[Rfam]
RNA sequence: UCAUCAUUGUCAUUUACCUGAAUAAUCUUUCGGGCAUUUGAUGUGUUCGGAAGAAAUUCCGAGCUGAGAUGUGAUAUAUUCCAACACAAUUGCUAACCCCUCGGAAAAAACUUCGAGGGGUUUUCUUU
Numbered sequence: 001u002c003a004u005c006a007u008u009g010u011c012a013u014u015u016a017c018c019u020g021a022a023u024a025a026u027c028u029u030u031c032g033g034g035c036a037u038u039u040g041a042u043g044u045g046u047u048c049g050g051a052a053g054a055a056a057u058u059c060c061g062a063g064c065u066g067a068g069a070u071g072u073g074a075u076a077u078a079u080u081c082c083a084a085c086a087c088a089a090u091u092g093c094u095a096a097c098c099c100c101u102c103g104g105a106a107a108a109a110a111c112u113u114c115g116a117g118g119g120g121u122u123u124u125c126u127u128u
Stems, first nucleotide, its partner, number of pairs: 008045003011040002017034005046063007092125001095122011